Source information
A member of the RNA family "emrB-Lactobacillus RNA" from Lactobacillus ultunensis, 64 nucleotides long.
[Rfam]
RNA sequence: UACUCAGCAUAUUUGAUAGUAUGCAUUUUAAUAUAAUUAGCGACGCUAAUUAAAGAAAGAGUAG
Dot-bracket structure: .((((.(((((((....))))))).........(((((((.....)))))))......))))..

It is annotated as a small RNA.